[Rfam]
RNA sequence: AUGCACUAGAUACGGACCUGACUGCUCAGCCCAGUGCACAGUGGUGUCUGAGUUCCCUGACUGUUGGGUUUUAAGAAAGGUGCCACAGAAACAUCAGCCCUGAUAUUUAAGCUCAUGAGUGUGAAGGUGCACUCUUGAGUUAUGGCUCAGAGGCACAGUG
Numbered sequence: 001a002u003g004c005a006c007u008a009g010a011u012a013c014g015g016a017c018c019u020g021a022c023u024g025c026u027c028a029g030c031c032c033a034g035u036g037c038a039c040a041g042u043g044g045u046g047u048c049u050g051a052g053u054u055c056c057c058u059g060a061c062u063g064u065u066g067g068g069u070u071u072u073a074a075g076a077a078a079g080g081u082g083c084c085a086c087a088g089a090a091a092c093a094u095c096a097g098c099c100c101u102g103a104u105a106u107u108u109a110a111g112c113u114c115a116u117g118a119g120u121g122u123g124a125a126g127g128u129g130c131a132c133u134c135u136u137g138a139g140u141u142a143u144g145g146c147u148c149a150g151a152g153g154c155a156c157a158g159u160g
Base pairs, nucleotide, nucleotide: 003083004082005081006080007079015070016069017068018067020065021064022063024061026060027059028054029053030052032050033049034047035046036045037044097154098153099152117132119130120129121128122127133151134150136149137148138147139146140145
Shown here is a 160-nucleotide RNA sequence from Coregonus sp. 'balchen', a member of the family "Small Cajal body specific RNA 1". By type it is a small Cajal body RNA. The family has 29 seed sequences and 715 matches in Rfam 15.1. The source organism's lineage runs through Eukaryota, Actinopterygii, Actinopteri, Protacanthopterygii and Coregonus. It scores 57 bits against the family's covariance model.